This 493-nucleotide part of an RNA from Aphis glycines belongs to the Rfam family "Eukaryotic large subunit ribosomal RNA". The source organism's lineage runs through Eukaryota, Insecta, Dicondylia, Aphididae and Aphis. Pairs were carried over by alignment from the consensus structure, which is taken from published work.
RNA sequence: GCACGGUCGCACGCGAUCGAAACCGCCUUUACGGCGGCAGUCGUUACGAUAGUAAUCCUGCCCAGUACGAGAGGAACGGCAGGUUCGGACAUUUGGUUCGGCACUCGCCCGAGCGGGCGUUGGUGCGAGGCUACCAUCCGUUGGAUUACGCCUGAACGCCUCUAAGGCCGUAUCCACUCUGGAGAAAACAGCCGGGCGGGCUUUCGGGCCCGUCUCGGGAAAACGAUCGUCCGUACGGCGGAGGAGACCCCGUACACGUCGGGAAGGCGUCAAAGCACGGACCUUCGGGUCCACGACGGGCCGGAAUCGCCGCCGCGCGGGCUCUCGGGCCCGCUGGCGGCGCAUCAACGGUGAACGCGGUGAUCCCGCGGCAAACGAUGUGGGGUCUCGGAAUCGUCUGCAGACGACUUAAGUACCGGGCGGGGUGUUGUACUCGGCAGAGCAGUUACCACGCUGCGAUCUGUUAAGACUGCCCUUUGCCUCGGGGGUUCGU
Numbered sequence: 001g002c003a004c005g006g007u008c009g010c011a012c013g014c015g016a017u018c019g020a021a022a023c024c025g026c027c028u029u030u031a032c033g034g035c036g037g038c039a040g041u042c043g044u045u046a047c048g049a050u051a052g053u054a055a056u057c058c059u060g061c062c063c064a065g066u067a068c069g070a071g072a073g074g075a076a077c078g079g080c081a082g083g084u085u086c087g088g089a090c091a092u093u094u095g096g097u098u099c100g101g102c103a104c105u106c107g108c109c110c111g112a113g114c115g116g117g118c119g120u121u122g123g124u125g126c127g128a129g130g131c132u133a134c135c136a137u138c139c140g141u142u143g144g145a146u147u148a149c150g151c152c153u154g155a156a157c158g159c160c161u162c163u164a165a166g167g168c169c170g171u172a173u174c175c176a177c178u179c180u181g182g183a184g185a186a187a188a189c190a191g192c193c194g195g196g197c198g199g200g201c202u203u204u205c206g207g208g209c210c211c212g213u214c215u216c217g218g219g220a221a222a223a224c225g226a227u228c229g230u231c232c233g234u235a236c237g238g239c240g241g242a243g244g245a246g247a248c249c250c251c252g253u254a255c256a257c258g259u260c261g262g263g264a265a266g267g268c269g270u271c272a273a274a275g276c277a278c279g280g281a282c283c284u285u286c287g288g289g290u291c292c293a294c295g296a297c298g299g300g301c302c303g304g305a306a307u308c309g310c311c312g313c314c315g316c317g318c319g320g321g322c323u324c325u326c327g328g329g330c331c332c333g334c335u336g337g338c339g340g341c342g343c344a345u346c347a348a349c350g351g352u353g354a355a356c357g358c359g360g361u362g363a364u365c366c367c368g369c370g371g372c373a374a375a376c377g378a379u380g381u382g383g384g385g386u387c388u389c390g391g392a393a394u395c396g397u398c399u400g401c402a403g404a405c406g407a408c409u410u411a412a413g414u415a416c417c418g419g420g421c422g423g424g425g426u427g428u429u430g431u432a433c434u435c436g437g438c439a440g441a442g443c444a445g446u447u448a449c450c451a452c453g454c455u456g457c458g459a460u461c462u463g464u465u466a467a468g469a470c471u472g473c474c475c476u477u478u479g480c481c482u483c484g485g486g487g488g489u490u491c492g493u
Base pairs, nucleotide, nucleotide: 040192041191043189044188045187050181051180052179055085057083058082059081060080061079062078086140087139088138089137094133095132096131101126102125103124104123106119107118108117109116110115142176143175144174150168151167152166153165206387207386209384210383211382212381391491392490393489394488395487397411400408418482419481420480421479422478423475424474425473427470428469435463436462437461439460442457443456444455445454446453